[Rfam]
RNA sequence: GCUUACACUUCUAAAUAAGUCUUGAUAAAUCAAUAUUUAUUGAUGUUACAAGGCUUUAUUUCUUCAGUUUUCAUCACGUUUAACUAGUAAUAGUGACCUUUGAAUAACUCUGUGUUUUCAUUAAAUCGUAGUGUUCAUUUACUUUGUCACUAAUUUCGCAUAACAUAUAUUAUGUUAAAUAAAAUAAAUGGUAAGUCACUUCUGGGAAUUUGAGGUUUGCUCUCUUUAAAAAUGACUGGGUAAAAAAAUUUAUUUCUUGAAGAUUUGAUUUUUU
Numbered sequence: 001g002c003u004u005a006c007a008c009u010u011c012u013a014a015a016u017a018a019g020u021c022u023u024g025a026u027a028a029a030u031c032a033a034u035a036u037u038u039a040u041u042g043a044u045g046u047u048a049c050a051a052g053g054c055u056u057u058a059u060u061u062c063u064u065c066a067g068u069u070u071u072c073a074u075c076a077c078g079u080u081u082a083a084c085u086a087g088u089a090a091u092a093g094u095g096a097c098c099u100u101u102g103a104a105u106a107a108c109u110c111u112g113u114g115u116u117u118u119c120a121u122u123a124a125a126u127c128g129u130a131g132u133g134u135u136c137a138u139u140u141a142c143u144u145u146g147u148c149a150c151u152a153a154u155u156u157c158g159c160a161u162a163a164c165a166u167a168u169a170u171u172a173u174g175u176u177a178a179a180u181a182a183a184a185u186a187a188a189u190g191g192u193a194a195g196u197c198a199c200u201u202c203u204g205g206g207a208a209u210u211u212g213a214g215g216u217u218u219g220c221u222c223u224c225u226u227u228a229a230a231a232a233u234g235a236c237u238g239g240g241u242a243a244a245a246a247a248a249u250u251u252a253u254u255u256c257u258u259g260a261a262g263a264u265u266u267g268a269u270u271u272u273u274u
Base pairs, nucleotide, nucleotide: 001196002195003194004193005192006191013061014060015059016058017057018056019054020053021052022051023050024049029044030043031042032041033040034039066085067084068083069082091152092151093150094149095148096147097146101141102140103139104138105137106135107134108133110131111130112129113128114127115125116124117123153180154179155178156177158175159174160173161172162171163170199262200261201260202259204257205256206255207254208253209252216244217243218242219241220240221239222238
Dot-bracket structure: ((((((......((((((((((((....((((((....))))))....)))))).))))))....((((............)))).....(((((((...((((((((.((((((((.....))).))))).))).)))))....)))))))((((.((((((......)))))).))))..........))))))..((((.((((((......(((((((...............))))))).......)))))).))))............